[Rfam]
RNA sequence: AGCUCAUCCAGAGGGGCAGAGGGACACGGCCCGAUGAAGCCCCGGCAACCCUCCAGCCGGUUCUCGUGUCGAUCGUUGUGCGCGCACAGCCGAUCGCACCCGCGAGGCUCCCGGCUAGGGAAGGUGCCAAAUCCGUCUCACGGCGAGAUGCGUC
Number, nucleotide and partner (000 for none) at each position: 001a000002g153003c152004u000005c150006a149007u148008c147009c000010a000011g000012a000013g043014g042015g041016g040017c039018a000019g000020a000021g032022g031023g030024a000025c000026a136027c135028g134029g133030c023031c022032c021033g000034a000035u000036g000037a000038a000039g017040c016041c015042c014043c013044g128045g127046c126047a125048a000049c124050c123051c120052u119053c118054c000055a000056g000057c000058c000059g000060g000061u000062u000063c000064u000065c000066g000067u000068g000069u000070c000071g000072a000073u000074c000075g000076u000077u000078g000079u000080g000081c000082g000083c000084g000085c000086a000087c000088a000089g000090c000091c000092g000093a000094u000095c000096g000097c000098a000099c000100c000101c000102g000103c000104g000105a000106g000107g000108c000109u000110c000111c000112c000113g000114g000115c000116u000117a000118g053119g052120g051121a000122a000123g050124g049125u047126g046127c045128c044129a000130a000131a000132u146133c029134c028135g027136u026137c143138u000139c000140a000141c000142g000143g137144c000145g000146a132147g008148a007149u006150g005151c000152g003153u002154c000
RNA: SAM riboswitch aptamer (S box leader)